[Rfam]
RNA sequence: GAAACGUCAACCCCGCACCGGCAGCCGCCGGGCAAGACGGGGACCGCCUCACCGCAAGGCGAGGCUGCC
Numbered sequence: 001g002a003a004a005c006g007u008c009a010a011c012c013c014c015g016c017a018c019c020g021g022c023a024g025c026c027g028c029c030g031g032g033c034a035a036g037a038c039g040g041g042g043a044c045c046g047c048c049u050c051a052c053c054g055c056a057a058g059g060c061g062a063g064g065c066u067g068c069c
Base pairs, nucleotide, nucleotide: 011042012041013040014039015038018031019030020029021028022027046065047064048063049062050061052059053058
Dot-bracket structure: ..........(((((..(((((....)))))......)))))...(((((.((....)).)))))....